RNA sequence: UUGCCAGUAUCUUUUUAAGAGCUGGACUUAAAAGACAAGGUAAAUGAUUUUAUAAUAUCGACUGGUAUCCGAAAGGAACUAGAGCGGAGG
Dot-bracket structure: ..((((((.((.......))))))).)...............................((.(((((.(((....))))))))..))....
Notes:
The family of this 90-nucleotide sequence from Schnuerera ultunensis is "pan motif". It scores 44 bits against the family's covariance model. Taxonomically the source falls in Schnuerera ultunensis (Bacteria, Bacillati, Bacillota, Tissierellia).